[Rfam]
RNA sequence: AUGAAGUGAUGAUGAAGUUUAUCCAUUCUCUGAGUGCAGUGACGCUGCCCUCCUGCAACACCCUGAUUCCUGUUCUAGGGUCUGGGUGCUGUGCAGCCUCCAGAGACCCUGCAGUGUCCCAGUGUCCUGCUGGGAGCUGCUGAGGGCUGUGGCUGGCUGCUUGCGGGAGUGGGGUGUCCUGGCAGGGCUGGAGCCGCCUUUGUGGGGGCUGCAUCCCCACCAAGACGAGGGAUGAUGUCUGAUCAU
Numbered sequence: 001a002u003g004a005a006g007u008g009a010u011g012a013u014g015a016a017g018u019u020u021a022u023c024c025a026u027u028c029u030c031u032g033a034g035u036g037c038a039g040u041g042a043c044g045c046u047g048c049c050c051u052c053c054u055g056c057a058a059c060a061c062c063c064u065g066a067u068u069c070c071u072g073u074u075c076u077a078g079g080g081u082c083u084g085g086g087u088g089c090u091g092u093g094c095a096g097c098c099u100c101c102a103g104a105g106a107c108c109c110u111g112c113a114g115u116g117u118c119c120c121a122g123u124g125u126c127c128u129g130c131u132g133g134g135a136g137c138u139g140c141u142g143a144g145g146g147c148u149g150u151g152g153c154u155g156g157c158u159g160c161u162u163g164c165g166g167g168a169g170u171g172g173g174g175u176g177u178c179c180u181g182g183c184a185g186g187g188c189u190g191g192a193g194c195c196g197c198c199u200u201u202g203u204g205g206g207g208g209c210u211g212c213a214u215c216c217c218c219a220c221c222a223a224g225a226c227g228a229g230g231g232a233u234g235a236u237g238u239c240u241g242a243u244c245a246u
Stems, first nucleotide, its partner, number of pairs: 010245004017238002020235001023231002026229003030224002034220002039183002042180001044177002048173003051168007059088005065082001068080004093160006107146001108144001111140005117135008185217003189213002192210001194208002
RNA: Small nucleolar RNA SNORD17